[Rfam]
This 87-nucleotide RNA from Triticum aestivum belongs to the Rfam family "MIR1120/MIR1122 microRNA precursor family".

RNA sequence: CUACUCCCUCUGUCCCAUAAUAUAGGACGUUUUUUGACACCAGUGUAGUGCCAAAAAACGUCCUACAUUAUGGGACGGAGGGAGUAA
Numbered sequence: 001c002u003a004c005u006c007c008c009u010c011u012g013u014c015c016c017a018u019a020a021u022a023u024a025g026g027a028c029g030u031u032u033u034u035u036g037a038c039a040c041c042a043g044u045g046u047a048g049u050g051c052c053a054a055a056a057a058a059c060g061u062c063c064u065a066c067a068u069u070a071u072g073g074g075a076c077g078g079a080g081g082g083a084g085u086a087a
Base pairs, nucleotide, nucleotide: 003085004084005083007081008080009079010078011077013075014074015073016072017071019069020068021067023065024064025063026062027061028060029059030058031057032056033055034054035053036052038050039049040048
The match comes from Rfam's covariance-model search (86 bits). For this family Rfam cites "Cloning and characterization of microRNAs from wheat (Triticum aestivum L.)" (Yao et al., Genome Biol, 2007). The family's consensus secondary structure was predicted with RNAalifold. Rfam 15.1 lists 44,765 matches to the family in 8 species.